[Rfam]
RNA sequence: UUUUACUACUAGGGGUGCCCUUAUCAGGGGCUGAGAGAAAAACGUACCGUUUAUCAACCCUUCGGACCUGAUCUGGGUGAUGCCAGCGUAGGAAAGUAGUGACGGGAAAUA
Numbered sequence: 001u002u003u004u005a006c007u008a009c010u011a012g013g014g015g016u017g018c019c020c021u022u023a024u025c026a027g028g029g030g031c032u033g034a035g036a037g038a039a040a041a042a043c044g045u046a047c048c049g050u051u052u053a054u055c056a057a058c059c060c061u062u063c064g065g066a067c068c069u070g071a072u073c074u075g076g077g078u079g080a081u082g083c084c085a086g087c088g089u090a091g092g093a094a095a096g097u098a099g100u101g102a103c104g105g106g107a108a109a110u111a
Stems, first nucleotide, its partner, number of pairs: 006099005011061004017031005038054001040052005067092004073086004